[Rfam]
RNA sequence: UUCAAUAUGUAGGGGAACCAGUGAUGCUGGUUGAGAUGUACUCAAAAAGUAUAUACCCUUUGAACCUGAUCUGGUUAAAGCCAGCGGAGGGAACAUACUCAUUAGCUAU
Numbered sequence: 001u002u003c004a005a006u007a008u009g010u011a012g013g014g015g016a017a018c019c020a021g022u023g024a025u026g027c028u029g030g031u032u033g034a035g036a037u038g039u040a041c042u043c044a045a046a047a048a049g050u051a052u053a054u055a056c057c058c059u060u061u062g063a064a065c066c067u068g069a070u071c072u073g074g075u076u077a078a079a080g081c082c083a084g085c086g087g088a089g090g091g092a093a094c095a096u097a098c099u100c101a102u103u104a105g106c107u108a109u
Base pairs, nucleotide, nucleotide: 006097007096008095009094010093011059012058013057014056017031018030019029020028021027038052039051040050041049042048065090066089067088071084072083073082074081
Dot-bracket structure: .....(((((((((..(((((.....)))))......(((((.....)))))...)))).....(((...((((......))))...)))..)))))............
The family of this 109-nucleotide RNA sequence from Sporosarcina limicola is "TPP riboswitch aptamer (THI element)".
The source organism's lineage runs through Bacteria, Bacillati, Bacillota, Caryophanales and Sporosarcina.